[Rfam]
RNA sequence: CUUGAGCGAGCCCAGCCAGAGUGGCCGCUCCGGCGGGCGUCCGCGCCCAUAGGUGUUGAUCAGCGCGCCUGCUUC
Numbered sequence: 001c002u003u004g005a006g007c008g009a010g011c012c013c014a015g016c017c018a019g020a021g022u023g024g025c026c027g028c029u030c031c032g033g034c035g036g037g038c039g040u041c042c043g044c045g046c047c048c049a050u051a052g053g054u055g056u057u058g059a060u061c062a063g064c065g066c067g068c069c070u071g072c073u074u075c
Stems, first nucleotide, its partner, number of pairs: 015025003031071003038065002043060001048055002
RNA: ASpks TB sRNA
Organism: Pseudomonas syringae group genomosp. 3